The record is a 184-nucleotide sequence from Holtiella tumoricola, which matches "Lysine riboswitch aptamer" in Rfam. The family's consensus secondary structure is taken from published work. Lineage of the source: Bacteria > Bacillota > Clostridia > Lachnospirales > Holtiella.
RNA sequence: CAAUCACGUAGAGGCGCGAUGCUUAUCAGUACUUUUUAUGAUCUUUGCAAGAAGAAAUGACUAAAUAGGAAAGGACGUAUCGCCGAAGGAGUAAAACGCUUGCACACUUUGUUCCUGGGGGUAUAGUUAAUAACUAUACAACUGUCACCUUUUGCUAUACAAUAGGUGGUGUGCUACUGUGUUU
Numbered sequence: 001c002a003a004u005c006a007c008g009u010a011g012a013g014g015c016g017c018g019a020u021g022c023u024u025a026u027c028a029g030u031a032c033u034u035u036u037u038a039u040g041a042u043c044u045u046u047g048c049a050a051g052a053a054g055a056a057a058u059g060a061c062u063a064a065a066u067a068g069g070a071a072a073g074g075a076c077g078u079a080u081c082g083c084c085g086a087a088g089g090a091g092u093a094a095a096a097c098g099c100u101u102g103c104a105c106a107c108u109u110u111g112u113u114c115c116u117g118g119g120g121g122u123a124u125a126g127u128u129a130a131u132a133a134c135u136a137u138a139c140a141a142c143u144g145u146c147a148c149c150u151u152u153u154g155c156u157a158u159a160c161a162a163u164a165g166g167u168g169g170u171g172u173g174c175u176a177c178u179g180u181g182u183u184u
Stems, first nucleotide, its partner, number of pairs: 008177004016083007024075001032068002035065004087116009098105001117143002121139007145169006